Description: A member of the RNA family "t44 RNA" from Thalassotalea mangrovi, 105 nucleotides long. The family's RNA type in Rfam is small RNA. Lineage of the source: Bacteria > Pseudomonadota > Gammaproteobacteria > Colwelliaceae > Thalassotalea. The base pairs follow the family's consensus structure, which was predicted with LocARNA.

[Rfam]
RNA sequence: AACAUUAUUAAUUAAAAACUCACAUACAUCGGCAAACGUAUUCCGGGGUGCUGCACUGAUGGUUAUCAGAUGCGGUCGGUAAUACGGGAUGUAUGGACGCUUAAC
Numbered sequence: 001a002a003c004a005u006u007a008u009u010a011a012u013u014a015a016a017a018a019c020u021c022a023c024a025u026a027c028a029u030c031g032g033c034a035a036a037c038g039u040a041u042u043c044c045g046g047g048g049u050g051c052u053g054c055a056c057u058g059a060u061g062g063u064u065a066u067c068a069g070a071u072g073c074g075g076u077c078g079g080u081a082a083u084a085c086g087g088g089a090u091g092u093a094u095g096g097a098c099g100c101u102u103a104a105c
Stems, first nucleotide, its partner, number of pairs: 023095008037086005043079003050076005